RNA sequence: GCGGAUACGUCCGCGCGGGAUGUGGCCCUCUGAGGCUGAACCACAAA
Numbered sequence: 001g002c003g004g005a006u007a008c009g010u011c012c013g014c015g016c017g018g019g020a021u022g023u024g025g026c027c028c029u030c031u032g033a034g035g036c037u038g039a040a041c042c043a044c045a046a047a
Stems, first nucleotide, its partner, number of pairs: 001014005017042002024037004
The family of this 47-nucleotide RNA is "eL15-Euryarchaeota ribosomal protein leader". The base pairs follow the family's consensus structure, which is taken from published work. On this family, see Eckert and Weinberg, BMC Microbiol 2020: "Discovery of 20 novel ribosomal leader candidates in bacteria and archaea".